[Rfam]
RNA sequence: UGCGACGGCCCUCACACUCGGAUCGUCCGGCACGUUCCUGCCGGUGGGAAGGAUUCACC
Numbered sequence: 001u002g003c004g005a006c007g008g009c010c011c012u013c014a015c016a017c018u019c020g021g022a023u024c025g026u027c028c029g030g031c032a033c034g035u036u037c038c039u040g041c042c043g044g045u046g047g048g049a050a051g052g053a054u055u056c057a058c059c
Stems, first nucleotide, its partner, number of pairs: 010051001012049002015046002027044006
The record is a 59-nucleotide RNA from Pseudonocardia sp., which matches "msiK RNA" in Rfam. Pairs were carried over by alignment from the consensus structure, which is taken from published work. Taxonomically the source falls in Pseudonocardia (Bacteria, Bacillati, Actinomycetota, Actinomycetes). It scores 48 bits against the family's covariance model.